[Rfam]
The family of this 54-nucleotide RNA is "Mu-gpT-DE RNA".
It is annotated as a small RNA.
RNA sequence: CCUUGACAGUCGCAUAGGGCGGCUGACAUUAGCCUAGACAAGGAGUUCCUCAUG
Numbered sequence: 001c002c003u004u005g006a007c008a009g010u011c012g013c014a015u016a017g018g019g020c021g022g023c024u025g026a027c028a029u030u031a032g033c034c035u036a037g038a039c040a041a042g043g044a045g046u047u048c049c050u051c052a053u054g
Base pairs, nucleotide, nucleotide: 002042003041004040005039007025008024009023010022011021